[Rfam]
RNA sequence: UGCCGGGUAGACGAAUUGGUAAAGUCCCCUGCCUCUGAAGCAGGAGUCAUGUAGGUUCAAGCCCUACCCCGGCAG
Numbered sequence: 001u002g003c004c005g006g007g008u009a010g011a012c013g014a015a016u017u018g019g020u021a022a023a024g025u026c027c028c029c030u031g032c033c034u035c036u037g038a039a040g041c042a043g044g045a046g047u048c049a050u051g052u053a054g055g056u057u058c059a060a061g062c063c064c065u066a067c068c069c070c071g072g073c074a075g
Stems, first nucleotide, its partner, number of pairs: 001074007010026003028044005051067005

Rfam assigns this 75-nucleotide RNA sequence from Coleofasciculus sp. LEGE 07092 to the family "tRNA". It is annotated as a transfer RNA. Transfer RNA (tRNA) molecules are approximately 80 nucleotides in length.